This 747-nucleotide sequence belongs to the Rfam family "MISL RNA".
It is annotated as a small RNA.
Rfam's curators put it in the seed alignment.
Pairs were carried over by alignment from the consensus structure, which is taken from published work.
[Rfam]
RNA sequence: GGAUAAUCCCGGGCAACCGGGGAAAGGAGGGCGUUAAUUGGUGACGUCCUCCCCUCUGCGGCGCGAGCCGCACGCAGGCAAAUAUCACCAGUUCCUCUGGACGGCGUCGCAGCCGAUCCAGUAUUGCGACAAAGGAGCUGUGCGGCGAGGCGCGACAUCAGAAACCGCGUUCGAGCCGAGUCAGGUCCAGGGCCAGUUUCGGGCCUUGCACCGAUGCAGUUACCCAGAGGGUUGUGGUUGCUACUGUAUAACUAGGACGCAGCGCAGUGUUCCGGUGGGUCCACCCCACCACAAGGCCCGGCCCGCAAGGCGGGGCGCGAAAGGGACACCGCGCAGCGGGGAGCGGGCGAGUCUGGCAAAGCUCGCAAAACCUCCUAAUUGGGGCGGCGCGUAAAUCCGCGUCACCCAACUGCAAAUCGAAAGCAACCUGAGAGGUAAGAGGUCAGACCCGUUACACGGGGCCAACGCCCGGCCAAAAGCCGGGGCCGUCCCCGUGGCAAGGUGCUGGUGCGAAAUGCAACAUUGCAGGCGUGCCAACACCCGUCCGGCGAGUUCACCAUCGGCAGAUGGAGCCGAACCGGGCGGAGAGGCCUCACUCGAUAAAUUCCGGAGCUGAAAAGGCCGGGACGGUCCCGCUAUGAGACCGACAGCAUCGCAUGCCGCGAUGAGUAGCGUCGGGAAGCACACGGCCCGCGAAAGCGAGGCGCCCAAUGUUGUGCGAAUGGGGAAGAGUGCGUGGCGAGCACC
Numbered sequence: 001g002g003a004u005a006a007u008c009c010c011g012g013g014c015a016a017c018c019g020g021g022g023a024a025a026g027g028a029g030g031g032c033g034u035u036a037a038u039u040g041g042u043g044a045c046g047u048c049c050u051c052c053c054c055u056c057u058g059c060g061g062c063g064c065g066a067g068c069c070g071c072a073c074g075c076a077g078g079c080a081a082a083u084a085u086c087a088c089c090a091g092u093u094c095c096u097c098u099g100g101a102c103g104g105c106g107u108c109g110c111a112g113c114c115g116a117u118c119c120a121g122u123a124u125u126g127c128g129a130c131a132a133a134g135g136a137g138c139u140g141u142g143c144g145g146c147g148a149g150g151c152g153c154g155a156c157a158u159c160a161g162a163a164a165c166c167g168c169g170u171u172c173g174a175g176c177c178g179a180g181u182c183a184g185g186u187c188c189a190g191g192g193c194c195a196g197u198u199u200c201g202g203g204c205c206u207u208g209c210a211c212c213g214a215u216g217c218a219g220u221u222a223c224c225c226a227g228a229g230g231g232u233u234g235u236g237g238u239u240g241c242u243a244c245u246g247u248a249u250a251a252c253u254a255g256g257a258c259g260c261a262g263c264g265c266a267g268u269g270u271u272c273c274g275g276u277g278g279g280u281c282c283a284c285c286c287c288a289c290c291a292c293a294a295g296g297c298c299c300g301g302c303c304c305g306c307a308a309g310g311c312g313g314g315g316c317g318c319g320a321a322a323g324g325g326a327c328a329c330c331g332c333g334c335a336g337c338g339g340g341g342a343g344c345g346g347g348c349g350a351g352u353c354u355g356g357c358a359a360a361g362c363u364c365g366c367a368a369a370a371c372c373u374c375c376u377a378a379u380u381g382g383g384g385c386g387g388c389g390c391g392u393a394a395a396u397c398c399g400c401g402u403c404a405c406c407c408a409a410c411u412g413c414a415a416a417u418c419g420a421a422a423g424c425a426a427c428c429u430g431a432g433a434g435g436u437a438a439g440a441g442g443u444c445a446g447a448c449c450c451g452u453u454a455c456a457c458g459g460g461g462c463c464a465a466c467g468c469c470c471g472g473c474c475a476a477a478a479g480c481c482g483g484g485g486c487c488g489u490c491c492c493c494g495u496g497g498c499a500a501g502g503u504g505c506u507g508g509u510g511c512g513a514a515a516u517g518c519a520a521c522a523u524u525g526c527a528g529g530c531g532u533g534c535c536a537a538c539a540c541c542c543g544u545c546c547g548g549c550g551a552g553u554u555c556a557c558c559a560u561c562g563g564c565a566g567a568u569g570g571a572g573c574c575g576a577a578c579c580g581g582g583c584g585g586a587g588a589g590g591c592c593u594c595a596c597u598c599g600a601u602a603a604a605u606u607c608c609g610g611a612g613c614u615g616a617a618a619a620g621g622c623c624g625g626g627a628c629g630g631u632c633c634c635g636c637u638a639u640g641a642g643a644c645c646g647a648c649a650g651c652a653u654c655g656c657a658u659g660c661c662g663c664g665a666u667g668a669g670u671a672g673c674g675u676c677g678g679g680a681a682g683c684a685c686a687c688g689g690c691c692c693g694c695g696a697a698a699g700c701g702a703g704g705c706g707c708c709c710a711a712u713g714u715u716g717u718g719c720g721a722a723u724g725g726g727g728a729a730g731a732g733u734g735c736g737u738g739g740c741g742a743g744c745a746c747c
Base pairs, nucleotide, nucleotide: 008021009020010019011018012017026052027051028050029049030048031047032046033045034044035043036042057072058071059070060069061068062067089140090139091138092137093136094135095134096133102115103114104113105112107129108128109127110126111125143178144177145176146175149172150171151169152168153167161200162199163198164197165196184212185211186210188208189207190206191205192204193203215248216247217246218245219244222232223231224230236428237427238426239425240424241423274290275289276288277287278286279285297314298313299312300311339376340375341374342373343372347366348365349364350363351362352361388401389400390399391398432598433597434596439594440593441592442591455496456495457494458493459492460491461490468484469483470482471481472480473479504538506536507535508534509533510532511531512530543583544582545581546580547579548578552574555572557570558569559568560567561566605627606626607625608624609623610622613620614619628646629645630644631643632642635673636672637671638670651667652666653665654664655663656662682719683718684717685716686715688712689705690704692701693700694699732746733745734744